Rfam assigns this 146-nucleotide sequence from Nonomuraea soli to the family "c-di-AMP riboswitch aptamer (ydaO/yuaA leader)". This family represents a conserved RNA structure found upstream of the ydaO and yuaA genes in Bacillus subtilis and related genes in other bacteria. The source organism's lineage runs through Bacteria, Actinomycetes, Streptosporangiales, Streptosporangiaceae and Nonomuraea.

[Rfam]
RNA sequence: GAGAUCCGCUUGCCGAAUCCGCGCAGCCAGGAGGCGCGGAACCGGGGACCCAAGGUACUGGGGUGAGUCGGCGCGACAUCGUGCCGUAGGGCGACUUCCACGCCCGAAUCCGUCAGCUAACCCGGUAGGCGUUCGUGGAAGUCCCA
Numbered sequence: 001g002a003g004a005u006c007c008g009c010u011u012g013c014c015g016a017a018u019c020c021g022c023g024c025a026g027c028c029a030g031g032a033g034g035c036g037c038g039g040a041a042c043c044g045g046g047g048a049c050c051c052a053a054g055g056u057a058c059u060g061g062g063g064u065g066a067g068u069c070g071g072c073g074c075g076a077c078a079u080c081g082u083g084c085c086g087u088a089g090g091g092c093g094a095c096u097u098c099c100a101c102g103c104c105c106g107a108a109u110c111c112g113u114c115a116g117c118u119a120a121c122c123c124g125g126u127a128g129g130c131g132u133u134c135g136u137g138g139a140a141g142u143c144c145c146a
Stems, first nucleotide, its partner, number of pairs: 011131004018040007041126006051060002061111003069086004089105004